Shown here is an 87-nucleotide RNA from Pelomonas sp. HMWF004, a member of the family "c-di-GMP-I riboswitch aptamer".
NCBI's taxonomy places the organism under Bacteria, Betaproteobacteria, Burkholderiales, Sphaerotilaceae, Roseateles.
RNA sequence: CAACCCUGAGGGCAAACCCGUCGAAAGGCGGGGACGCAAAGCUUCCGGCCUACAGCACUUCGGUGCCAUGGCAGCGGGGCCGCCAAG
Dot-bracket structure: ...........((...((((((....))))))...))...(((.((((((....((((....))))...)))..)))))).......
Rfam's curators write: GEMM was predicted in a large-scale screen for bacterial structured RNA regulatory elements.